RNA: Flavo-1 RNA
RNA sequence: UUUUAGCCCCGAUAGAAGUGGAAAUCCUUUUGCUUUUUUCUUUAAAAAGGAAAAGAUUGCAGCGAAUAGCGGGAUCAGCU
Numbered sequence: 001u002u003u004u005a006g007c008c009c010c011g012a013u014a015g016a017a018g019u020g021g022a023a024a025u026c027c028u029u030u031u032g033c034u035u036u037u038u039u040c041u042u043u044a045a046a047a048a049g050g051a052a053a054a055g056a057u058u059g060c061a062g063c064g065a066a067u068a069g070c071g072g073g074a075u076c077a078g079c080u
Stems, first nucleotide, its partner, number of pairs: 009072003013068002018063002023058004029053003033049001036046003